[Rfam]
RNA sequence: CCGUGCUAGGCGGGGAGUUAGCGGUGCCUUGUACCUGCAAUCCGCUACAGCAGGGCUGAAUUCCUGCCCGGAGGCUUUUUGUUGUGAGGUCUGGGCUUGGUAAGGAGUGUUGAUGGUCGGGUCCCGUGCAAUCAGGCUUUGUGAACCCUGUCAGGUCCGGAAGGAAGCAGCAGUAAGCAAAUGACCUGGUGUGCCGCGGGAUGGCCUGGCUGGAGCCACCUGCCAAGUGUCCGCUUGGAACAACGAGUCGAGGGGCGGGUGCACGG
Numbered sequence: 001c002c003g004u005g006c007u008a009g010g011c012g013g014g015g016a017g018u019u020a021g022c023g024g025u026g027c028c029u030u031g032u033a034c035c036u037g038c039a040a041u042c043c044g045c046u047a048c049a050g051c052a053g054g055g056c057u058g059a060a061u062u063c064c065u066g067c068c069c070g071g072a073g074g075c076u077u078u079u080u081g082u083u084g085u086g087a088g089g090u091c092u093g094g095g096c097u098u099g100g101u102a103a104g105g106a107g108u109g110u111u112g113a114u115g116g117u118c119g120g121g122u123c124c125c126g127u128g129c130a131a132u133c134a135g136g137c138u139u140u141g142u143g144a145a146c147c148c149u150g151u152c153a154g155g156u157c158c159g160g161a162a163g164g165a166a167g168c169a170g171c172a173g174u175a176a177g178c179a180a181a182u183g184a185c186c187u188g189g190u191g192u193g194c195c196g197c198g199g200g201a202u203g204g205c206c207u208g209g210c211u212g213g214a215g216c217c218a219c220c221u222g223c224c225a226a227g228u229g230u231c232c233g234c235u236u237g238g239a240a241c242a243a244c245g246a247g248u249c250g251a252g253g254g255g256c257g258g259g260u261g262c263a264c265g266g
Stems, first nucleotide, its partner, number of pairs: 001266006009057003012030004017025003034054005063259007073249005079243005085237004092233002096227006104220002107216002114212009123200006129191002132189005138181005148173004156165003